Bacterial RNase P class A: a 320-nucleotide sequence from Flavobacterium sediminis.

[Rfam]
RNA sequence: AGCGCAGACCGUCUUAUCGCUGUCCUUUUAAGGAGAGAGGAAAGUCCGGACACCAUAGAGCAGCGUAGCGGGUAACACCCGUCAUUCCGUUUUGCGGAAUAGGACAAGUGCAACAGAAAGGAUGUACAGGUAAUGCUGUAGUGAAAUCAGGUAAACUCUAUGCGGUGAAAUGCCAUGUAUAUCAGCUUCCGGUUUUCCGGAAAGGGUGGCUCGCCCAAUGCUGAGGGGUAGGCAGAUGGAUUCCGUGAGUAAUUGCGGAACUAGAUAAAUGAUAAGAUUCCUUUUGGAAACAGAACCCGGCUUACAGGUCUGCUUUUUUU
Number, nucleotide and partner (000 for none) at each position: 001a316002g315003c000004g313005c312006a311007g310008a309009c308010c307011g305012u277013c276014u275015u274016a273017u272018c271019g000020c037021u036022g000023u034024c033025c032026u031027u000028u000029u000030a000031a026032g025033g024034a023035g000036a021037g020038a000039g000040g000041a000042a303043a302044g301045u000046c300047c299048g298049g297050a000051c167052a166053c165054c164055a000056u000057a000058g212059a211060g210061c209062a000063g163064c162065g161066u160067a159068g082069c081070g080071g079072g078073u000074a000075a000076c000077a000078c072079c071080c070081g069082u068083c102084a100085u099086u098087c097088c096089g095090u094091u000092u000093u000094g090095c089096g088097g087098a086099a085100u084101a000102g083103g158104a157105c000106a000107a000108g156109u155110g152111c151112a000113a000114c000115a000116g000117a000118a000119a000120g000121g000122a000123u000124g000125u000126a000127c000128a000129g000130g000131u000132a000133a000134u000135g000136c000137u000138g000139u000140a000141g000142u000143g000144a000145a000146a000147u000148c000149a000150g000151g111152u110153a000154a000155a109156c108157u104158c103159u067160a066161u065162g064163c063164g054165g053166u052167g051168a000169a000170a000171u234172g233173c232174c231175a000176u000177g000178u000179a000180u000181a000182u224183c223184a222185g221186c220187u000188u000189c000190c000191g000192g000193u000194u000195u000196u000197c000198c000199g000200g000201a000202a000203a000204g216205g215206g214207u213208g000209g061210c060211u059212c058213g207214c206215c205216c204217a000218a000219u000220g186221c185222u184223g183224a182225g000226g000227g000228g000229u000230a000231g174232g173233c172234a171235g000236a000237u000238g000239g000240a000241u260242u259243c258244c257245g256246u255247g254248a253249g000250u000251a000252a000253u248254u247255g246256c245257g244258g243259a242260a241261c000262u000263a000264g000265a000266u000267a000268a000269a000270u000271g018272a017273u016274a015275a014276g013277a012278u000279u000280c000281c000282u000283u000284u000285u000286g000287g000288a000289a000290a000291c000292a000293g000294a000295a000296c000297c049298c048299g047300g046301c044302u043303u042304a000305c011306a000307g010308g009309u008310c007311u006312g005313c004314u000315u002316u001317u000318u000319u000320u000

Notes:
The match comes from Rfam's covariance-model search (188 bits).